Rfam assigns this 72-nucleotide RNA from Medicago truncatula to the family "MIR2629 microRNA precursor family". NCBI's taxonomy places the organism under Eukaryota, Streptophyta, Tracheophyta, Trifolieae, Medicago.
[Rfam]
RNA sequence: CUACGAGGUUUUCCUCAGCAGUUAACUGCAGCCGGAUUUCAAAUUCAUCGGCAGUUAACUGCCGAGGAGUAU
Numbered sequence: 001c002u003a004c005g006a007g008g009u010u011u012u013c014c015u016c017a018g019c020a021g022u023u024a025a026c027u028g029c030a031g032c033c034g035g036a037u038u039u040c041a042a043a044u045u046c047a048u049c050g051g052c053a054g055u056u057a058a059c060u061g062c063c064g065a066g067g068a069g070u071a072u
Base pairs, nucleotide, nucleotide: 012068013067015065016064018062019061020060021059022058023057024056025055026054027053028052029051